[Rfam]
RNA sequence: UGCCUAUUUCGCUCAGGCGGAGCUCGACCGCCGACCGUAGACGUCGAUGCGUUCAUUGCCGCGCACCGCGACGAGCAUGGGGUCGAGCCGAUCUGCGAGGUCCUGAAAGAGACUGGAAUCGCGAUCGCCCCA
Number, nucleotide and partner (000 for none) at each position: 001u000002g000003c000004c000005u000006a000007u000008u000009u000010c000011g000012c000013u000014c000015a000016g032017g031018c030019g029020g028021a000022g000023c000024u000025c000026g000027a000028c020029c019030g018031c017032c016033g000034a000035c000036c000037g000038u000039a000040g000041a000042c000043g000044u000045c000046g000047a000048u000049g000050c000051g000052u000053u000054c000055a000056u000057u000058g000059c000060c000061g000062c000063g000064c000065a000066c000067c000068g000069c000070g000071a000072c000073g000074a000075g000076c000077a000078u132079g131080g130081g129082g128083u000084c000085g000086a000087g000088c000089c127090g126091a000092u124093c123094u000095g122096c121097g120098a119099g000100g000101u000102c000103c000104u000105g000106a000107a000108a000109g000110a000111g000112a000113c000114u000115g000116g000117a000118a000119u098120c097121g096122c095123g093124a092125u000126c090127g089128c082129c081130c080131c079132a078
A member of the RNA family "ALIL pseudoknot" from Mobilicoccus pelagius, 132 nucleotides long. The source organism's lineage runs through Bacteria, Bacillati, Actinomycetes, Mobilicoccus and Mobilicoccus pelagius. The base pairs follow the family's consensus structure, which is taken from published work.